[Rfam]
Rfam assigns this 367-nucleotide RNA from Rhodobacteraceae bacterium 63075 to the family "Bacterial RNase P class A". Taxonomically the source falls in Paracoccaceae (Bacteria, Pseudomonadota, Alphaproteobacteria, Rhodobacterales). Pairs were carried over by alignment from the consensus structure, which is taken from published work. The match comes from Rfam's covariance-model search (302 bits).

RNA sequence: GCGGAGGGCCGGAUGGCCGCUCGGGGAGCGAUCCCCGGGAGGAAAGUCCGGACUCCACAAGGCAAAGGUGCCGGGUAACGCCCGGGCAGGGCAACCUGACGGAAAGUGCCACAGAAAACAGACCGCUCCCGCAUGCGGGAGCAAGGGUGAAACGGUGGGGUAAGAGCCCACCGGGGGGCUGGCAACAGGCCUCGCACGGCAAACCCCACCUGGAGCAAUGCCGAAUAGGAAUCUCGCAUGGGCUGUCUUGGUCCGAGGUUCGGGUAGGCAGCUGGAGGGGCGUCGGCAACGGCGUCUUGAGAGGAAUGGUCAUCCAUGGCGGGCACGCCCGCCGGGACAGAAUCCGGCUUACAGGCUCUCCGCGCGU
Numbered sequence: 001g002c003g004g005a006g007g008g009c010c011g012g013a014u015g016g017c018c019g020c021u022c023g024g025g026g027a028g029c030g031a032u033c034c035c036c037g038g039g040a041g042g043a044a045a046g047u048c049c050g051g052a053c054u055c056c057a058c059a060a061g062g063c064a065a066a067g068g069u070g071c072c073g074g075g076u077a078a079c080g081c082c083c084g085g086g087c088a089g090g091g092c093a094a095c096c097u098g099a100c101g102g103a104a105a106g107u108g109c110c111a112c113a114g115a116a117a118a119c120a121g122a123c124c125g126c127u128c129c130c131g132c133a134u135g136c137g138g139g140a141g142c143a144a145g146g147g148u149g150a151a152a153c154g155g156u157g158g159g160g161u162a163a164g165a166g167c168c169c170a171c172c173g174g175g176g177g178g179c180u181g182g183c184a185a186c187a188g189g190c191c192u193c194g195c196a197c198g199g200c201a202a203a204c205c206c207c208a209c210c211u212g213g214a215g216c217a218a219u220g221c222c223g224a225a226u227a228g229g230a231a232u233c234u235c236g237c238a239u240g241g242g243c244u245g246u247c248u249u250g251g252u253c254c255g256a257g258g259u260u261c262g263g264g265u266a267g268g269c270a271g272c273u274g275g276a277g278g279g280g281c282g283u284c285g286g287c288a289a290c291g292g293c294g295u296c297u298u299g300a301g302a303g304g305a306a307u308g309g310u311c312a313u314c315c316a317u318g319g320c321g322g323g324c325a326c327g328c329c330c331g332c333c334g335g336g337a338c339a340g341a342a343u344c345c346g347g348c349u350u351a352c353a354g355g356c357u358c359u360c361c362g363c364g365c366g367u
Base pairs, nucleotide, nucleotide: 001363002362003361004360005359006358007357008356009355010354011352012314013313014312015311016310017309018308020039021038022037023036024035025034026033027032044350045349046348048347049346050345051344052343053215054214055213056212061249062248064246066211067210068209069208070207071085072084073083074082075081086100087098088097089096090095101206102205106204107203108200109199110198123146124145125142126141127140128139129138130137131136154172155171156170157169158168159167173195174193175192176191177190179188180187181186219270220269221268222267229261230260231259232258233257234256240254241253242252243251244250278297279296280295281294282293283292284291285290